[Rfam]
RNA sequence: GCGCGGAUGACCCUCACUGGUGUGGGGUGCGGGCUUCAAACCCGUAGCCGAUUAGCGUCGGAGUGGUUCAAUUCCACCUUCUGCGC
Numbered sequence: 001g002c003g004c005g006g007a008u009g010a011c012c013c014u015c016a017c018u019g020g021u022g023u024g025g026g027g028u029g030c031g032g033g034c035u036u037c038a039a040a041c042c043c044g045u046a047g048c049c050g051a052u053u054a055g056c057g058u059c060g061g062a063g064u065g066g067u068u069c070a071a072u073u074c075c076a077c078c079u080u081c082u083g084c085g086c
Base pairs, nucleotide, nucleotide: 001086002085003084004083005082006081007080009078012027013026014025015024016023017022028046029045030044031043032042033041048061049060050059051058052057063077064076065075066074
Dot-bracket structure: (((((((.(..((((((....))))))((((((.......)))))).(((((....))))).((((.......))))).)))))))
Record summary
Selenocysteine transfer RNA: an 86-nucleotide RNA sequence from Exaiptasia diaphana. The source organism's lineage runs through Eukaryota, Opisthokonta, Eumetazoa, Cnidaria and Exaiptasia. The match comes from Rfam's covariance-model search (80 bits).